[Rfam]
The record is a 97-nucleotide RNA sequence from Fumia xinanensis, which matches "pemK RNA" in Rfam.
By type it is a cis-regulatory element.
Lineage of the source: Bacteria > Bacillati > Clostridia > Oscillospiraceae > Fumia.

RNA sequence: ACAAUGAUACUCCUGUCCAGCCACAGCCCCGCCCGAAAGCGGGAUCACGCAAUGGGGGCAGCUCCGGGCGAACCUCGGAGGGGUGGAAUUCCCGUGA
Numbered sequence: 001a002c003a004a005u006g007a008u009a010c011u012c013c014u015g016u017c018c019a020g021c022c023a024c025a026g027c028c029c030c031g032c033c034c035g036a037a038a039g040c041g042g043g044a045u046c047a048c049g050c051a052a053u054g055g056g057g058g059c060a061g062c063u064c065c066g067g068g069c070g071a072a073c074c075u076c077g078g079a080g081g082g083g084u085g086g087a088a089u090u091c092c093c094g095u096g097a
Base pairs, nucleotide, nucleotide: 012094013061014060015059016058017057018056062080063079064078066076067075068074081093082092083091